[Rfam]
A member of the RNA family "Plastid-psbA-2 3UTR RNA" from Weigela florida, 56 nucleotides long.
Pairs were carried over by alignment from the consensus structure, which was predicted with LocARNA.
The family's RNA type in Rfam is cis-regulatory element.
A reference for the family is Richter et al. (2023), "Retrograde signaling in plants: A critical review focusing on the GUN pathway and beyond", Plant Commun.
Rfam describes the family as follows. Plastid psbA-2 is a non-coding RNA (ncRNA) present in plastids. It was identified in inverted repeat sequences in the 3 prime untranslate region (3UTR) of photosystem II quinone-binding protein (psbA).

RNA sequence: AAAAAAGGAGCAAUAAUCCCUCUUUUCUAUCAAGAGGGAUUAUUGCUCCUUUUUUU
Numbered sequence: 001a002a003a004a005a006a007g008g009a010g011c012a013a014u015a016a017u018c019c020c021u022c023u024u025u026u027c028u029a030u031c032a033a034g035a036g037g038g039a040u041u042a043u044u045g046c047u048c049c050u051u052u053u054u055u056u
Stems, first nucleotide, its partner, number of pairs: 002054019023035002